[Rfam]
Rfam assigns this 87-nucleotide sequence from Alkalicoccus daliensis to the family "c-di-GMP-I riboswitch aptamer". The base pairs follow the family's consensus structure, which is taken from published work.
RNA sequence: UCUAGAAAAAGGCCAGGCUUUUGAAAGAAAGCUGCGCAAAUGCAGGAUCCUACGGUGUGUCUCUGCUAUGGAUGUCCUGCUGCCUAG
Numbered sequence: 001u002c003u004a005g006a007a008a009a010a011g012g013c014c015a016g017g018c019u020u021u022u023g024a025a026a027g028a029a030a031g032c033u034g035c036g037c038a039a040a041u042g043c044a045g046g047a048u049c050c051u052a053c054g055g056u057g058u059g060u061c062u063c064u065g066c067u068a069u070g071g072a073u074g075u076c077c078u079g080c081u082g083c084c085u086a087g
Base pairs, nucleotide, nucleotide: 012037013036017032018031019030020029021028022027040081042080043079045077046076047075048072049071050070055066056065057064